[Rfam]
RNA: Small nucleolar RNA SNORA51
RNA sequence: AAUCUUUUGGACUUACCACACACAGGCUUGUUCUUACACUAACUGUAUAGAAAGAAGAGGCCUAAACCACAUACACCUCAGCCCAGGCCCUGGGCCUGGUCUGUAUUGUCAAAAGGGAAAUAUGC
Numbered sequence: 001a002a003u004c005u006u007u008u009g010g011a012c013u014u015a016c017c018a019c020a021c022a023c024a025g026g027c028u029u030g031u032u033c034u035u036a037c038a039c040u041a042a043c044u045g046u047a048u049a050g051a052a053a054g055a056a057g058a059g060g061c062c063u064a065a066a067c068c069a070c071a072u073a074c075a076c077c078u079c080a081g082c083c084c085a086g087g088c089c090c091u092g093g094g095c096c097u098g099g100u101c102u103g104u105a106u107u108g109u110c111a112a113a114a115g116g117g118a119a120a121u122a123u124g125c
Base pairs, nucleotide, nucleotide: 003060004059005058006057007056008055023045024044025043029038030037031036070117079103080102081101083099084098085097086096087095088094